[Rfam]
RNA sequence: GGAUAUUUGAGGAGAUCUAUUCCUAGUACGAGAGGACCGGAAUGGACGAACCUCUGGUUUUCCGGUUGUGAUGCCAAUUGCAUCGCCGGGUAGCUAUGUUCGGAAAGGAUAACCGCUGAAAGCAUCUAAGCGGGAAGCCAACUCCAAAACUAGAUAUCCCCUCCUCCUUCGGGAGGACCGUAGACCCCUUGUAGACUACAAGGUUGAUAGGCCAGAUGUGUAAGCACAGCAAUGUGUUCAGCUAACUGGUACUAAUUGGUCGCGAG
Numbered sequence: 001g002g003a004u005a006u007u008u009g010a011g012g013a014g015a016u017c018u019a020u021u022c023c024u025a026g027u028a029c030g031a032g033a034g035g036a037c038c039g040g041a042a043u044g045g046a047c048g049a050a051c052c053u054c055u056g057g058u059u060u061u062c063c064g065g066u067u068g069u070g071a072u073g074c075c076a077a078u079u080g081c082a083u084c085g086c087c088g089g090g091u092a093g094c095u096a097u098g099u100u101c102g103g104a105a106a107g108g109a110u111a112a113c114c115g116c117u118g119a120a121a122g123c124a125u126c127u128a129a130g131c132g133g134g135a136a137g138c139c140a141a142c143u144c145c146a147a148a149a150c151u152a153g154a155u156a157u158c159c160c161c162u163c164c165u166c167c168u169u170c171g172g173g174a175g176g177a178c179c180g181u182a183g184a185c186c187c188c189u190u191g192u193a194g195a196c197u198a199c200a201a202g203g204u205u206g207a208u209a210g211g212c213c214a215g216a217u218g219u220g221u222a223a224g225c226a227c228a229g230c231a232a233u234g235u236g237u238u239c240a241g242c243u244a245a246c247u248g249g250u251a252c253u254a255a256u257u258g259g260u261c262g263c264g265a266g
Base pairs, nucleotide, nucleotide: 001159002158003157004156005155006154007153008152011145012144013143014142017045018044019043020042021041022040023039047102048101049100050099051098055096056095057094062089063088064087065086066085067082068081069080070079071078072077107139108138113133114132115131116130117129162177163176164175165174166173180263183261184260185259186258187203188202189201190200191199208254209253210252211250212249213248214247215246218242224237225236226235227234228233
Record summary:
The family of this 266-nucleotide part of an RNA from uncultured bacterium HF0770_08F21 is "Bacterial large subunit ribosomal RNA". Rfam's curators put it in the seed alignment.